[Rfam]
A member of the RNA family "A. fumigatus sRNA Afu_254" from Talaromyces islandicus, 151 nucleotides long.
Rfam classes the family as a small RNA.
A search with the family's covariance model found it, with a score of 87 bits.
The source organism's lineage runs through Eukaryota, Dikarya, Ascomycota, leotiomyceta and Talaromyces sect. Islandici.
Rfam 15.1 lists 185 matches to the family in 142 species.
RNA sequence: CAACUCAAUUACUACCUAACAGAACUAUUCGAGGUACUCUUUUUAUCUCUCCACAACAACCAGCCAAUAUGUCUCCCUGCUCGUGCAACUGCUGCUCCGGCAACUGCAACUCUUGCUCUUGCAACUCUUGCUCCGUAAGUUGUCUCUUUUA
Numbered sequence: 001c002a003a004c005u006c007a008a009u010u011a012c013u014a015c016c017u018a019a020c021a022g023a024a025c026u027a028u029u030c031g032a033g034g035u036a037c038u039c040u041u042u043u044u045a046u047c048u049c050u051c052c053a054c055a056a057c058a059a060c061c062a063g064c065c066a067a068u069a070u071g072u073c074u075c076c077c078u079g080c081u082c083g084u085g086c087a088a089c090u091g092c093u094g095c096u097c098c099g100g101c102a103a104c105u106g107c108a109a110c111u112c113u114u115g116c117u118c119u120u121g122c123a124a125c126u127c128u129u130g131c132u133c134c135g136u137a138a139g140u141u142g143u144c145u146c147u148u149u150u151a
Stems, first nucleotide, its partner, number of pairs: 078102004085095003106131003115122002